[Rfam]
RNA sequence: AUUCAAAUAGGCGAUGGAGUUCGCCAUAAUUGUCUUUUUUAGACUGAUUACUCCUACCGGAUU
Numbered sequence: 001a002u003u004c005a006a007a008u009a010g011g012c013g014a015u016g017g018a019g020u021u022c023g024c025c026a027u028a029a030u031u032g033u034c035u036u037u038u039u040u041a042g043a044c045u046g047a048u049u050a051c052u053c054c055u056a057c058c059g060g061a062u063u
Base pairs, nucleotide, nucleotide: 010025011024012023013022016054017053018052019051020050032044033043034042035041
RNA: Fluoride riboswitch aptamer (crcB RNA motif)
Organism: Falsibacillus pallidus